[Rfam]
RNA sequence: UUAAAAUUAAAUGGCGAUUGUCGGUAUGGUCGCUUUUUCAAGACUUCAAAGCUGCAUAUCGAAGUGACUAGACCGAACACUCGUGCUAUAAUUUUAAAA
Numbered sequence: 001u002u003a004a005a006a007u008u009a010a011a012u013g014g015c016g017a018u019u020g021u022c023g024g025u026a027u028g029g030u031c032g033c034u035u036u037u038u039c040a041a042g043a044c045u046u047c048a049a050a051g052c053u054g055c056a057u058a059u060c061g062a063a064g065u066g067a068c069u070a071g072a073c074c075g076a077a078c079a080c081u082c083g084u085g086c087u088a089u090a091a092u093u094u095u096a097a098a099a
Stems, first nucleotide, its partner, number of pairs: 011089006019079003022075003027070005033064002

This 99-nucleotide sequence from Drosophila busckii belongs to the Rfam family "mir-286 microRNA precursor family". Rfam 15.1 lists 37 matches to the family in 31 species. Pairs were carried over by alignment from the consensus structure, which was predicted with RNAalifold. Gene Ontology terms of the family: RISC complex and miRNA-mediated post-transcriptional gene silencing.